Record summary
Rfam assigns this 94-nucleotide RNA sequence from Podilymbus podiceps to the family "Vault RNA". NCBI's taxonomy places the organism under Eukaryota, Sarcopterygii, Neoaves, Podicipediformes, Podilymbus. It scores 45 bits against the family's covariance model. The family's RNA type in Rfam is non-coding RNA gene. This family of RNAs are found as part of the enigmatic vault ribonucleoprotein complex. The complex consists of a major vault protein (MVP), two minor vault proteins (VPARP and TEP1), and several small untranslated RNA molecules. It has been suggested that the vault complex is involved in drug resistance.
RNA sequence: GGGCCGGCUAUAGCCCAGAGGUUACUUCGGUGUGUUCAUCGCAUUUCUAGCGCCCCGCGAGGGGUUCGAUACUGCGGGCAUCCCUGGCUCAUUU
Numbered sequence: 001g002g003g004c005c006g007g008c009u010a011u012a013g014c015c016c017a018g019a020g021g022u023u024a025c026u027u028c029g030g031u032g033u034g035u036u037c038a039u040c041g042c043a044u045u046u047c048u049a050g051c052g053c054c055c056c057g058c059g060a061g062g063g064g065u066u067c068g069a070u071a072c073u074g075c076g077g078g079c080a081u082c083c084c085u086g087g088c089u090c091a092u093u094u
Stems, first nucleotide, its partner, number of pairs: 002089006013079004018075001020073002027069004